Source information: Rfam assigns this 79-nucleotide sequence from Bacillus benzoevorans to the family "RT-18 RNA". Pairs were carried over by alignment from the consensus structure, which is taken from published work.

[Rfam]
RNA sequence: UAGCCCUUGCUAAAAAUACAGCCGUAAAGAGCAUAGUUUAGUAGGUUCAUUCUCGAAAAACUGUGAGGCUAAUAAGAUG
Numbered sequence: 001u002a003g004c005c006c007u008u009g010c011u012a013a014a015a016a017u018a019c020a021g022c023c024g025u026a027a028a029g030a031g032c033a034u035a036g037u038u039u040a041g042u043a044g045g046u047u048c049a050u051u052c053u054c055g056a057a058a059a060a061c062u063g064u065g066a067g068g069c070u071a072a073u074a075a076g077a078u079g
Stems, first nucleotide, its partner, number of pairs: 001012004020070004032065007044054002